[Rfam]
RNA: Purine riboswitch aptamer
Organism: Weissella halotolerans
RNA sequence: AAAAUUGAAUAGUACCCCUGUACGUAUAAUCAUUGGAGAAUGGCCAAUAAGUUUCUACCCGUGUCCCGAGACACGGACUACUACAGGUGUGUCAAAGGGC
Numbered sequence: 001a002a003a004a005u006u007g008a009a010u011a012g013u014a015c016c017c018c019u020g021u022a023c024g025u026a027u028a029a030u031c032a033u034u035g036g037a038g039a040a041u042g043g044c045c046a047a048u049a050a051g052u053u054u055c056u057a058c059c060c061g062u063g064u065c066c067c068g069a070g071a072c073a074c075g076g077a078c079u080a081c082u083a084c085a086g087g088u089g090u091g092u093c094a095a096a097g098g099g100c
Base pairs, nucleotide, nucleotide: 018086019085020084021083022082024081025080026079030050032048033047034046035045036044059076060075061074062073063072064071065070